[Rfam]
RNA sequence: CAAACUCUUCGGGGCAAGGUGAAAUUCCUUACCGACGGUAAUUGAGCAAAGAAGAAUUGUACUGCAUUCUUCUUUGCUCAUAAGUCCGUGACCCGUCCUUCUUUUUUCGAGGGCGGUGGAGCUGGUGAAAGUCCGGCACCGACAGUUAUAGUCUGGAUGGGAGAAGUUGUUU
Numbered sequence: 001c002a003a004a005c006u007c008u009u010c011g012g013g014g015c016a017a018g019g020u021g022a023a024a025u026u027c028c029u030u031a032c033c034g035a036c037g038g039u040a041a042u043u044g045a046g047c048a049a050a051g052a053a054g055a056a057u058u059g060u061a062c063u064g065c066a067u068u069c070u071u072c073u074u075u076g077c078u079c080a081u082a083a084g085u086c087c088g089u090g091a092c093c094c095g096u097c098c099u100u101c102u103u104u105u106u107u108c109g110a111g112g113g114c115g116g117u118g119g120a121g122c123u124g125g126u127g128a129a130a131g132u133c134c135g136g137c138a139c140c141g142a143c144a145g146u147u148a149u150a151g152u153c154u155g156g157a158u159g160g161g162a163g164a165a166g167u168u169g170u171u172u
Base pairs, nucleotide, nucleotide: 003170007166008165009164010163017029018028019027031152032151033141034140035089036088037087038086093116094115095114096113121137122136123135124134125133143155144154145153
RNA: FMN riboswitch aptamer (RFN element)